Rfam assigns this 133-nucleotide sequence from Sapajus apella to the family "U11 spliceosomal RNA". It is annotated as a spliceosomal small nuclear RNA. Taxonomically the source falls in Sapajus (Eukaryota, Bilateria, Deuterostomia, Euarchontoglires). It scores 49 bits against the family's covariance model.
RNA sequence: AAAAAGGGCUUCUGUUGUGACUGGCACACGUAGAGUAACUUGAUUGCCCUUCGUGCGGAAUCGACAUCAAGAGAAGAUUUAUUAGGAAAACUGUCUUACAUAAUUAUGGAGGCUGAAAAGUCCCAUGAUAUUC
Numbered sequence: 001a002a003a004a005a006g007g008g009c010u011u012c013u014g015u016u017g018u019g020a021c022u023g024g025c026a027c028a029c030g031u032a033g034a035g036u037a038a039c040u041u042g043a044u045u046g047c048c049c050u051u052c053g054u055g056c057g058g059a060a061u062c063g064a065c066a067u068c069a070a071g072a073g074a075a076g077a078u079u080u081a082u083u084a085g086g087a088a089a090a091c092u093g094u095c096u097u098a099c100a101u102a103a104u105u106a107u108g109g110a111g112g113c114u115g116a117a118a119a120g121u122c123c124c125a126u127g128a129u130a131u132u133c
Base pairs, nucleotide, nucleotide: 009086010085011084013026014025015024016023017022027055028054029053030052032050033049035047036046037045038044058080059079060078061077062076100131101130102129105127106126107125108124109123111122112121113120114119